RNA sequence: ACACCCUUGACUCACUCUGAAAUCUACCAUCAUGCCCCGUGGUUUAUUUCUAUUUUUGUGCAAGGAAGAGGAAUUCUAGCCCAAUACUCACCGCGACAUCUUAGCGACAUCGCUCUGGUGGAUGUGGCGGUCCAUCAUCAUGGCCACAU
Numbered sequence: 001a002c003a004c005c006c007u008u009g010a011c012u013c014a015c016u017c018u019g020a021a022a023u024c025u026a027c028c029a030u031c032a033u034g035c036c037c038c039g040u041g042g043u044u045u046a047u048u049u050c051u052a053u054u055u056u057u058g059u060g061c062a063a064g065g066a067a068g069a070g071g072a073a074u075u076c077u078a079g080c081c082c083a084a085u086a087c088u089c090a091c092c093g094c095g096a097c098a099u100c101u102u103a104g105c106g107a108c109a110u111c112g113c114u115c116u117g118g119u120g121g122a123u124g125u126g127g128c129g130g131u132c133c134a135u136c137a138u139c140a141u142g143g144c145c146a147c148a149u
Stems, first nucleotide, its partner, number of pairs: 007063003019050005026043003079144003091130004096125006
Source information
The record is a 149-nucleotide RNA sequence from Fusarium sp. NRRL 66182, which matches "Small nucleolar RNA snR80" in Rfam. For this family Rfam cites "Genome-wide searching for pseudouridylation guide snoRNAs: analysis of the Saccharomyces cerevisiae genome" (Schattner et al., Nucleic Acids Res, 2004). Gene Ontology terms of the family: nucleolus and RNA processing. It scores 41 bits against the family's covariance model. Clan: SNORA28 clan. By type it is an H/ACA-box small nucleolar RNA.